This 59-nucleotide RNA sequence from Faidherbia albida belongs to the Rfam family "Plastid-psbA-3 3UTR RNA". Lineage of the source: Eukaryota > Streptophyta > Pentapetalae > Caesalpinioideae > Faidherbia. About the family: Plastid psbA-3 is a non-coding RNA (ncRNA) present in plastids. It was identified in inverted repeat sequences in the 3 prime untranslate region (3UTR) of photosystem II quinone-binding protein (psbA). On this family, see Richter et al., Plant Commun 2023: "Retrograde signaling in plants: A critical review focusing on the GUN pathway and beyond". The sequence is in the family's curated seed alignment. The family's RNA type in Rfam is cis-regulatory element. Clan: Plastid-psbA 3UTR RNA clan.
RNA sequence: AAAGGAGCAAUAAUGAAUUUCUUGUUCUAUCAAGAGGGUUAAUAUUGCUCCUUUACUUU
Numbered sequence: 001a002a003a004g005g006a007g008c009a010a011u012a013a014u015g016a017a018u019u020u021c022u023u024g025u026u027c028u029a030u031c032a033a034g035a036g037g038g039u040u041a042a043u044a045u046u047g048c049u050c051c052u053u054u055a056c057u058u059u
Base pairs, nucleotide, nucleotide: 001054002053003052004051005050006049007048008047009046010045011044012043014041019036020035021034022033023032024031